The record is a 157-nucleotide sequence from Neisseria gonorrhoeae, which matches "NrrF RNA" in Rfam.
[Rfam]
RNA sequence: CCACUCGGAAGCCGUCCGUUCCGAACCAUUAAACACUGUAUUCCCUCACAAUUCACUUUCACACUUGGAGUCGGCAUAUACGAGACAUACAUUCCCUUUUUAAUCAGAUACUCAAAACCGAAACGCCAAACCCACCCUAGCGGUGGGUUUGGCGUUU
Number, nucleotide and partner (000 for none) at each position: 001c000002c000003a000004c000005u000006c000007g095008g094009a093010a092011g000012c000013c000014g086015u085016c084017c082018g081019u080020u000021c074022c073023g072024a071025a000026c068027c067028a066029u000030u000031a000032a000033a000034c000035a000036c000037u000038g000039u000040a000041u000042u000043c000044c000045c000046u000047c000048a000049c000050a000051a000052u000053u000054c000055a000056c000057u000058u000059u000060c000061a000062c000063a000064c000065u000066u028067g027068g026069a000070g000071u024072c023073g022074g021075c000076a000077u000078a000079u000080a019081c018082g017083a000084g016085a015086c014087a000088u000089a000090c000091a000092u010093u009094c008095c007096c000097u000098u000099u000100u000101u000102a000103a000104u000105c000106a000107g000108a000109u000110a000111c000112u000113c000114a000115a000116a000117a000118c000119c000120g000121a157122a156123a155124c154125g153126c152127c151128a150129a149130a148131c147132c146133c145134a144135c143136c142137c000138u000139a000140g000141c000142g136143g135144u134145g133146g132147g131148u130149u129150u128151g127152g126153c125154g124155u123156u122157u121
Annotation
The base pairs follow the family's consensus structure, which is taken from published work. On this family, see Mellin et al., J Bacteriol 2007: "A novel fur- and iron-regulated small RNA, NrrF, is required for indirect fur-mediated regulation of the sdhA and sdhC genes in Neisseria meningitidis". Its family is annotated with regulation of translation, ncRNA-mediated in the Gene Ontology.